[Rfam]
RNA sequence: AUAAUUUGACUGUAGUAUUAUCAUAUAUAUUUGCCAAUACGGGGCAAACGUUUCUACCUGAAAACCGUAAAUUUUCAGACUAUGAUUAUGCGACUUUUUUAG
Numbered sequence: 001a002u003a004a005u006u007u008g009a010c011u012g013u014a015g016u017a018u019u020a021u022c023a024u025a026u027a028u029a030u031u032u033g034c035c036a037a038u039a040c041g042g043g044g045c046a047a048a049c050g051u052u053u054c055u056a057c058c059u060g061a062a063a064a065c066c067g068u069a070a071a072u073u074u075u076c077a078g079a080c081u082a083u084g085a086u087u088a089u090g091c092g093a094c095u096u097u098u099u100u101a102g
Base pairs, nucleotide, nucleotide: 018088020086021085022084023083024082025081030048031047032046033045034044035043058078059077060076061075062074063073064072
RNA: Purine riboswitch aptamer